[Rfam]
RNA sequence: GUAUUGUGGGGACCACCUCCUCGAGAGGUGUUGGGCAGUAGCCAGCGCAACGUCGAGCACGUGAGUCUAGACCCCUUCGUGCCCCUCUUUAACGACGUCGCAGCCAGCCAUGCCGCUUUUUUCG
Dot-bracket structure: .....((((((..((((((.....))))))...(((....))).((.(.((((((.(((..((((..........)))))))..........)))))).)..))...))...))))........
Shown here is a 124-nucleotide RNA from Trinickia dabaoshanensis, a member of the family "Burkholderia sRNA 39". For this family Rfam cites "Identification of small RNAs abundant in Burkholderia cenocepacia biofilms reveal putative regulators with a potential role in carbon and iron metabolism" (Sass et al., Sci Rep, 2017). The family's consensus secondary structure was predicted with RNAfold. NCBI's taxonomy places the organism under Bacteria, Pseudomonadati, Pseudomonadota, Burkholderiales, Trinickia. Trans-encoded, exhibits differential expression profiles dependent on growth phase and cell stimuli, such as antbiotics and serum. May function in bacterial metabolism and adaptation to the host. Shown to be expressed in biotin.